[Rfam]
RNA sequence: GUCCCCGUGGCACAGCUGGAUAGCGCAGCCCCCUCCUAAGGGGCAGGUCGUAGGUUCGAAUCCUACCGGGGACG
Numbered sequence: 001g002u003c004c005c006c007g008u009g010g011c012a013c014a015g016c017u018g019g020a021u022a023g024c025g026c027a028g029c030c031c032c033c034u035c036c037u038a039a040g041g042g043g044c045a046g047g048u049c050g051u052a053g054g055u056u057c058g059a060a061u062c063c064u065a066c067c068g069g070g071g072a073c074g
Stems, first nucleotide, its partner, number of pairs: 001073007010026002013023001028044005050066005
Shown here is a 74-nucleotide RNA from Pseudidiomarina planktonica, a member of the family "tRNA". By type it is a transfer RNA. Lineage of the source: Bacteria > Pseudomonadati > Gammaproteobacteria > Idiomarinaceae > Pseudidiomarina. Pairs were carried over by alignment from the consensus structure, which is taken from published work. Rfam links the family to the GO term triplet codon-amino acid adaptor activity. On this family, see Lowe and Eddy, Nucleic Acids Res 1997: "tRNAscan-SE: a program for improved detection of transfer RNA genes in genomic sequence".